[Rfam]
RNA sequence: AUCUUUGCACUUGGGGCAAUGACGCAGCUAGUGACGUCUAACCGAGGCACAGUCAAUUGCUGGUUGAAAACUAUUUCCAAACCCCCUCCUCAGCCUUGUUGGACGCCAUAGCUGGCGAGAAUUUUGGGAAGGGCUCCCUCUAAUCAAGGGUAAAGCC
Numbered sequence: 001a002u003c004u005u006u007g008c009a010c011u012u013g014g015g016g017c018a019a020u021g022a023c024g025c026a027g028c029u030a031g032u033g034a035c036g037u038c039u040a041a042c043c044g045a046g047g048c049a050c051a052g053u054c055a056a057u058u059g060c061u062g063g064u065u066g067a068a069a070a071c072u073a074u075u076u077c078c079a080a081a082c083c084c085c086c087u088c089c090u091c092a093g094c095c096u097u098g099u100u101g102g103a104c105g106c107c108a109u110a111g112c113u114g115g116c117g118a119g120a121a122u123u124u125u126g127g128g129a130a131g132g133g134c135u136c137c138c139u140c141u142a143a144u145c146a147a148g149g150g151u152a153a154a155g156c157c
Base pairs, nucleotide, nucleotide: 021054022053023052024050027048028047029046036042037041086119087118088117090115091114092113093112094111096108098106132157133156134155135154
Rfam assigns this 157-nucleotide RNA from Coptis chinensis to the family "U4 spliceosomal RNA". By type it is a spliceosomal small nuclear RNA. Pairs were carried over by alignment from the consensus structure, which is taken from published work. Lineage of the source: Eukaryota > Viridiplantae > Mesangiospermae > Ranunculales > Coptis.